[Rfam]
RNA: Molybdenum/Tungsten riboswitch aptamer (Moco RNA motif)
Organism: Acetobacterium paludosum
RNA sequence: UAAUAAUAAAAACUCCGAAGUUUAAUGUUUCUAAAGUCGUCAAGACUAAGAACUUAAACCCGUAGGGUAUAAUCGGAAACGAUUAUGUCUCCCAUUGUGGAAAAGGGGCUUAACAGGGUGUAAC
Numbered sequence: 001u002a003a004u005a006a007u008a009a010a011a012a013c014u015c016c017g018a019a020g021u022u023u024a025a026u027g028u029u030u031c032u033a034a035a036g037u038c039g040u041c042a043a044g045a046c047u048a049a050g051a052a053c054u055u056a057a058a059c060c061c062g063u064a065g066g067g068u069a070u071a072a073u074c075g076g077a078a079a080c081g082a083u084u085a086u087g088u089c090u091c092c093c094a095u096u097g098u099g100g101a102a103a104a105g106g107g108g109c110u111u112a113a114c115a116g117g118g119u120g121u122a123a124c
Stems, first nucleotide, its partner, number of pairs: 004117001011110001013108004020059006029052003035047004065090011091100002